RNA sequence: CAAUUAAACAUGGAGCAGGCGACUCCCGCCGGCGGUUCGGAUAUUUCUGAAGUCGGCGAAGGCGUGCGGCUGGGCCGGGACGACAACCCGGCAGCGGGCGGAUAAAAUUCGCGGCCCGUGGGACCGUU
Numbered sequence: 001c002a003a004u005u006a007a008a009c010a011u012g013g014a015g016c017a018g019g020c021g022a023c024u025c026c027c028g029c030c031g032g033c034g035g036u037u038c039g040g041a042u043a044u045u046u047c048u049g050a051a052g053u054c055g056g057c058g059a060a061g062g063c064g065u066g067c068g069g070c071u072g073g074g075c076c077g078g079g080a081c082g083a084c085a086a087c088c089c090g091g092c093a094g095c096g097g098g099c100g101g102a103u104a105a106a107a108u109u110c111g112c113g114g115c116c117c118g119u120g121g122g123a124c125c126g127u128u
Stems, first nucleotide, its partner, number of pairs: 010127004016122001018071003022065002025062002074092005094119006
Rfam assigns this 128-nucleotide sequence from Synergistes jonesii to the family "NiCo (Nickel/Cobalt) riboswitch aptamer". It scores 44 bits against the family's covariance model. For this family Rfam cites "Bacterial riboswitches cooperatively bind Ni(2+) or Co(2+) ions and control expression of heavy metal transporters" (Furukawa et al., Mol Cell, 2015). The family's consensus secondary structure is taken from published work. Taxonomically the source falls in Synergistes (Bacteria, Thermotogati, Synergistota, Synergistia).